[Rfam]
RNA: Selenocysteine transfer RNA
RNA sequence: GCCACCAUGAUCCCCAGCGGUCUGGGGGGCGGCCUUCAAAGCCGUCGGUCCCGAGAGGGACAGCCGUUCGACUCGGCCUUGGGGGC
Numbered sequence: 001g002c003c004a005c006c007a008u009g010a011u012c013c014c015c016a017g018c019g020g021u022c023u024g025g026g027g028g029g030c031g032g033c034c035u036u037c038a039a040a041g042c043c044g045u046c047g048g049u050c051c052c053g054a055g056a057g058g059g060a061c062a063g064c065c066g067u068u069c070g071a072c073u074c075g076g077c078c079u080u081g082g083g084g085g086c
Base pairs, nucleotide, nucleotide: 001086002085003084005082006081007080009078012027013026014025015024016023017022028046029045030044031043032042033041048061049060050059051058052057063077064076065075066074